[Rfam]
RNA sequence: UAAAUCCUACAAUGUGCGUGUGCCUAUUUGAUUUUUUAACCAACACUUUUUUUAACGGGAGCUUAACUUUAGAUAUCUAAUAAAUGCCCUGAAUUUAAGGGACUUAUGAAAUAUCUAGGAGAGCACCCACCUGCUAAGCAGGUUUAAAAAACAAAGGGUCACGGCAUCGUGGGGUUUUU
Numbered sequence: 001u002a003a004a005u006c007c008u009a010c011a012a013u014g015u016g017c018g019u020g021u022g023c024c025u026a027u028u029u030g031a032u033u034u035u036u037u038a039a040c041c042a043a044c045a046c047u048u049u050u051u052u053u054a055a056c057g058g059g060a061g062c063u064u065a066a067c068u069u070u071a072g073a074u075a076u077c078u079a080a081u082a083a084a085u086g087c088c089c090u091g092a093a094u095u096u097a098a099g100g101g102a103c104u105u106a107u108g109a110a111a112u113a114u115c116u117a118g119g120a121g122a123g124c125a126c127c128c129a130c131c132u133g134c135u136a137a138g139c140a141g142g143u144u145u146a147a148a149a150a151a152c153a154a155a156g157g158g159u160c161a162c163g164g165c166a167u168c169g170u171g172g173g174g175u176u177u178u179u
Stems, first nucleotide, its partner, number of pairs: 002177009012167004017163003032151004037146003040142002057128003061124004068118001070117007082105002087101004
RNA: 6S / SsrS RNA